[Rfam]
The family of this 137-nucleotide RNA from Arsenophonus endosymbiont of Aphis craccivora is "RtT RNA". A search with the family's covariance model found it, with a score of 66 bits. Rfam classes the family as a cis-regulatory element. The base pairs follow the family's consensus structure, which is taken from published work. The source organism's lineage runs through Bacteria, Pseudomonadati, Pseudomonadota, Enterobacterales and Arsenophonus.
RNA sequence: UAGCUCAGUCGGUAGAGCAGUUGACUUUUAAUCAAUUGGUCACAGGUCCGAGCCGAGCGAAGCGAGACAGCGUUGUGCGAAGUACAACGACCCGCAGGGCGAGGCAAUAGGCCGAGUUAUCCUGUACGAUCCCACCA
Numbered sequence: 001u002a003g004c005u006c007a008g009u010c011g012g013u014a015g016a017g018c019a020g021u022u023g024a025c026u027u028u029u030a031a032u033c034a035a036u037u038g039g040u041c042a043c044a045g046g047u048c049c050g051a052g053c054c055g056a057g058c059g060a061a062g063c064g065a066g067a068c069a070g071c072g073u074u075g076u077g078c079g080a081a082g083u084a085c086a087a088c089g090a091c092c093c094g095c096a097g098g099g100c101g102a103g104g105c106a107a108u109a110g111g112c113c114g115a116g117u118u119a120u121c122c123u124g125u126a127c128g129a130u131c132c133c134a135c136c137a
Base pairs, nucleotide, nucleotide: 015127017125018124019123020122022119037101038100040099041098047096049094050093054064055063071089072088073087074086075085076084